[Rfam]
RNA sequence: CCACAGCCGGGGUGGACCCAUAAGGGAUAAGCCCGGACUCGUAAGCCGAUAGAGCGAGAUGAAAACAUCAUCGGCAGCC
Numbered sequence: 001c002c003a004c005a006g007c008c009g010g011g012g013u014g015g016a017c018c019c020a021u022a023a024g025g026g027a028u029a030a031g032c033c034c035g036g037a038c039u040c041g042u043a044a045g046c047c048g049a050u051a052g053a054g055c056g057a058g059a060u061g062a063a064a065a066c067a068u069c070a071u072c073g074g075c076a077g078c079c
Base pairs, nucleotide, nucleotide: 001015002014003013004012007036008035009034010033011032017026018025019024038058039057040056041055045075046074047073048072049071
The record is a 79-nucleotide RNA, which matches "Proteo-phage-1 RNA" in Rfam.
Rfam's curators put it in the seed alignment.